[Rfam]
RNA: THF (Tetrahydrofolate) riboswitch aptamer
Organism: Candidatus Parepulonipiscium sp. PG-Nuni2H_MBin01
RNA sequence: GGCAGAGUAGGGGUAGAUGCGUUAAGUGCUUGGUGAACGGGAAGUUGUCACCUUGACGAAAAACUAAUGUUUGCGGUAUCUACCUCGCAUUCCGCUGCC
Numbered sequence: 001g002g003c004a005g006a007g008u009a010g011g012g013g014u015a016g017a018u019g020c021g022u023u024a025a026g027u028g029c030u031u032g033g034u035g036a037a038c039g040g041g042a043a044g045u046u047g048u049c050a051c052c053u054u055g056a057c058g059a060a061a062a063a064c065u066a067a068u069g070u071u072u073g074c075g076g077u078a079u080c081u082a083c084c085u086c087g088c089a090u091u092c093c094g095c096u097g098c099c
Base pairs, nucleotide, nucleotide: 001099002098003097004096005095010086011085012084013083014082015081016080017079018078019077020075021074022073026057027056029055032052033051034050035049036048040092041091042090044088061072062071063070064069